[Rfam]
RNA: mir-87 microRNA precursor family
RNA sequence: CAUUCGGCGCCUGACACUUUGGCUCAACCUGCGAUUUGUAAAAGAGGUGAGCAAAGUUUCAGGUUCUUCGAAUGA
Numbered sequence: 001c002a003u004u005c006g007g008c009g010c011c012u013g014a015c016a017c018u019u020u021g022g023c024u025c026a027a028c029c030u031g032c033g034a035u036u037u038g039u040a041a042a043a044g045a046g047g048u049g050a051g052c053a054a055a056g057u058u059u060c061a062g063g064u065u066c067u068u069c070g071a072a073u074g075a
Stems, first nucleotide, its partner, number of pairs: 002073006009064006016057005023051004028047003